[Rfam]
RNA sequence: AUAAAAACAAAAGCCCUCGUAGACACUGCUGUCUACAAGGGCUUUUGUCCGGGCGCCCCUCGCGGGACGCCCAUCAUGGGAGAGGAGAAACCGGACGAAGAGCUUAUGGGGAAACGUAAGUCUUCUCCGCGG
Numbered sequence: 001a002u003a004a005a006a007a008c009a010a011a012a013g014c015c016c017u018c019g020u021a022g023a024c025a026c027u028g029c030u031g032u033c034u035a036c037a038a039g040g041g042c043u044u045u046u047g048u049c050c051g052g053g054c055g056c057c058c059c060u061c062g063c064g065g066g067a068c069g070c071c072c073a074u075c076a077u078g079g080g081a082g083a084g085g086a087g088a089a090a091c092c093g094g095a096c097g098a099a100g101a102g103c104u105u106a107u108g109g110g111g112a113a114a115c116g117u118a119a120g121u122c123u124u125c126u127c128c129g130c131g132g
Stems, first nucleotide, its partner, number of pairs: 008047009048080004053070003057066002092129004097125004102121005

This 132-nucleotide RNA from Paenibacillus sp. 7541 belongs to the Rfam family "ylbH leader".
It is annotated as a cis-regulatory leader.
A reference for the family is Barrick et al. (2004), "New RNA motifs suggest an expanded scope for riboswitches in bacterial genetic control", Proc Natl Acad Sci U S A.
Rfam's curators write: This family is a putative regulatory RNA structure that is found upstream of the ylbH gene in B. subtilis and related low GC Gram-positive bacteria.
Its family is annotated with regulation of gene expression in the Gene Ontology.